[Rfam]
RNA sequence: CCGGAUCGCGUGCCUCCUUUGUGACGACUGACAAGAACGGGGAACCCACUUCCCCGGGAGGAAACUCCCUUGGGGCUAAGGCCCGGCCUGGCAACAGGUCGGACCCGGGCAACACUCCAGCCCGCGCCCGACAGCUAACUCCGUAGGCGAUGGAGAGGUACCUC
Numbered sequence: 001c002c003g004g005a006u007c008g009c010g011u012g013c014c015u016c017c018u019u020u021g022u023g024a025c026g027a028c029u030g031a032c033a034a035g036a037a038c039g040g041g042g043a044a045c046c047c048a049c050u051u052c053c054c055c056g057g058g059a060g061g062a063a064a065c066u067c068c069c070u071u072g073g074g075g076c077u078a079a080g081g082c083c084c085g086g087c088c089u090g091g092c093a094a095c096a097g098g099u100c101g102g103a104c105c106c107g108g109g110c111a112a113c114a115c116u117c118c119a120g121c122c123c124g125c126g127c128c129c130g131a132c133a134g135c136u137a138a139c140u141c142c143g144u145a146g147g148c149g150a151u152g153g154a155g156a157g158g159u160a161c162c163u164c
Stems, first nucleotide, its partner, number of pairs: 001147002006036002037144006047072002073129003081104001083102008107123004
The record is a 164-nucleotide RNA sequence from Ornithinimicrobium ciconiae, which matches "c-di-AMP riboswitch aptamer (ydaO/yuaA leader)" in Rfam. The source organism's lineage runs through Bacteria, Bacillati, Actinomycetes, Ornithinimicrobiaceae and Ornithinimicrobium. This family represents a conserved RNA structure found upstream of the ydaO and yuaA genes in Bacillus subtilis and related genes in other bacteria.